[Rfam]
The record is a 75-nucleotide RNA from Myotis davidii, which matches "mir-9223 microRNA precursor family" in Rfam. The family's consensus secondary structure was predicted with RNAalifold. Its family is annotated with RISC complex and miRNA-mediated post-transcriptional gene silencing in the Gene Ontology. The match comes from Rfam's covariance-model search (86 bits).
RNA sequence: GGCAGUUCUCGGGUGACCCAUUCUGGAAUUAGGCUCCCUCCUCUCUGGUUCCGGGUGUGUCACCUGAGAACCGCA
Numbered sequence: 001g002g003c004a005g006u007u008c009u010c011g012g013g014u015g016a017c018c019c020a021u022u023c024u025g026g027a028a029u030u031a032g033g034c035u036c037c038c039u040c041c042u043c044u045c046u047g048g049u050u051c052c053g054g055g056u057g058u059g060u061c062a063c064c065u066g067a068g069a070a071c072c073g074c075a
Stems, first nucleotide, its partner, number of pairs: 002074002005071013019057005025052009